The family of this 118-nucleotide RNA from Scardovia inopinata is "FMN riboswitch aptamer (RFN element)".
About the family: The RFN element is a highly conserved domain that is found frequently in the 5'-untranslated regions of prokaryotic mRNAs that encode for flavin mononucleotide (FMN) biosynthesis and transport proteins.

RNA sequence: CAUAAGUUUCAGGGUGGGGUGAAAUUCCCUACUGGCGGUAAAGCCCGCGACCCGCAUAAGCGGUGGAUUCGGUGAAAUCCCGAAGCCAACGGUAUAGUCCGGAUGAAAGAAACGAGAU
Numbered sequence: 001c002a003u004a005a006g007u008u009u010c011a012g013g014g015u016g017g018g019g020u021g022a023a024a025u026u027c028c029c030u031a032c033u034g035g036c037g038g039u040a041a042a043g044c045c046c047g048c049g050a051c052c053c054g055c056a057u058a059a060g061c062g063g064u065g066g067a068u069u070c071g072g073u074g075a076a077a078u079c080c081c082g083a084a085g086c087c088a089a090c091g092g093u094a095u096a097g098u099c100c101g102g103a104u105g106a107a108a109g110a111a112a113c114g115a116g117a118u
Base pairs, nucleotide, nucleotide: 003116006113007112008111009110010109017029018028019027031098032097033088034087035048036047037046038045043086044085052063053062068084069083070082071081072080090101091100092099

A search with the family's covariance model found it, with a score of 113 bits.